[Rfam]
The record is a 174-nucleotide sequence from Beijerinckia indica, which matches "caulobacter sRNA CC2171" in Rfam.
RNA sequence: AACACAUCGAAAGGAGGUGAUCCAGUGUCUCAUUGUCUUACAUCGCGGGCCCGGACCUGGCAUCAUGCCUUCUUGGGGGCUUUCGGCCUCUAAGCCGCCUUAUUCCGGGAUCGCGGACCGCGAUCCGACAAUGGAAGGACCGUCUCCCGAGCAGUUUUGCGAAGGGGCGGUCCU
Numbered sequence: 001a002a003c004a005c006a007u008c009g010a011a012a013g014g015a016g017g018u019g020a021u022c023c024a025g026u027g028u029c030u031c032a033u034u035g036u037c038u039u040a041c042a043u044c045g046c047g048g049g050c051c052c053g054g055a056c057c058u059g060g061c062a063u064c065a066u067g068c069c070u071u072c073u074u075g076g077g078g079g080c081u082u083u084c085g086g087c088c089u090c091u092a093a094g095c096c097g098c099c100u101u102a103u104u105c106c107g108g109g110a111u112c113g114c115g116g117a118c119c120g121c122g123a124u125c126c127g128a129c130a131a132u133g134g135a136a137g138g139a140c141c142g143u144c145u146c147c148c149g150a151g152c153a154g155u156u157u158u159g160c161g162a163a164g165g166g167g168c169g170g171u172c173c174u
Base pairs, nucleotide, nucleotide: 016023017022031133032132033131034130035129036128037127044060047057048056050054066102067101069097073094077090078088079087080086111123112122113121114120115119136174137173138172139171140170141169142168143167144166145165146164
Rfam's curators put it in the seed alignment. The organism belongs to Beijerinckia indica subsp. indica, within Bacteria.